[Rfam]
Nucleotides: 096
Base pairs, nucleotide, nucleotide: 006091007090008089009088010087011086012085013084020039021038022037023036024035025034041076042075043074044072045071048070049069050068055063
Number, partner (000 for none) and nucleotide at each position: 001000u002000g003000a004000a005000c006091c007090c008089g009088u010087g011086c012085g013084g014000g015000a016000g017000a018000g019000u020039c021038c022037g023036a024035g025034u026000u027000c028000c029000c030000g031000u032000c033000c034025g035024c036023u037022c038021g039020g040000c041076g042075c043074c044072g045071a046000a047000g048070g049069a050068g051000c052000a053000a054000a055063u056000c057000c058000u059000c060000c061000c062000c063055g064000g065000a066000a067000c068050c069049u070048c071045u072044c073000a074043g075042g076041c077000g078000c079000a080000a081000g082000g083000a084013c085012c086011g087010c088009a089008c090007g091006g092000g093000c094000u095000a096000g
This 96-nucleotide sequence from Umezawaea tangerina belongs to the Rfam family "Glycine riboswitch aptamer". Its family is annotated with glycine biosynthetic process in the Gene Ontology.